Rfam assigns this 77-nucleotide sequence from Alligator mississippiensis to the family "Mammalian CPEB3 ribozyme".

[Rfam]
RNA sequence: AGUUGAAAAGUCAAGGCCAGAGCAGAAGCACUCACGGCACGGCCGUGCCAGAUUUCAGUGAAUCUGUGAAUUCUGCU
Numbered sequence: 001a002g003u004u005g006a007a008a009a010g011u012c013a014a015g016g017c018c019a020g021a022g023c024a025g026a027a028g029c030a031c032u033c034a035c036g037g038c039a040c041g042g043c044c045g046u047g048c049c050a051g052a053u054u055u056c057a058g059u060g061a062a063u064c065u066g067u068g069a070a071u072u073c074u075g076c077u
Stems, first nucleotide, its partner, number of pairs: 015044004021077007028040001049066007

Lineage of the source: Eukaryota > Eumetazoa > Sarcopterygii > Sauropsida > Alligator. A search with the family's covariance model found it, with a score of 50 bits.